[Rfam]
mir-3 microRNA precursor family: a 75-nucleotide sequence from Drosophila mojavensis.
RNA sequence: AUUAUAAGGUAAACUUUGUUCAGUUUUGCCGGGUUCUAUGUUGUGCGCAUCACUGGGUGAAGUUUGUCGUAUAAU
Numbered sequence: 001a002u003u004a005u006a007a008g009g010u011a012a013a014c015u016u017u018g019u020u021c022a023g024u025u026u027u028g029c030c031g032g033g034u035u036c037u038a039u040g041u042u043g044u045g046c047g048c049a050u051c052a053c054u055g056g057g058u059g060a061a062g063u064u065u066g067u068c069g070u071a072u073a074a075u
Stems, first nucleotide, its partner, number of pairs: 005071002008068007017059003021055004
Dot-bracket structure: ....((.(((((((..(((.((((...........................)))).)))..))))))).))....

Taxonomically the source falls in mojavensis species complex (Eukaryota, Protostomia, Pterygota, Brachycera). Rfam links the family to the GO terms RISC complex and miRNA-mediated post-transcriptional gene silencing.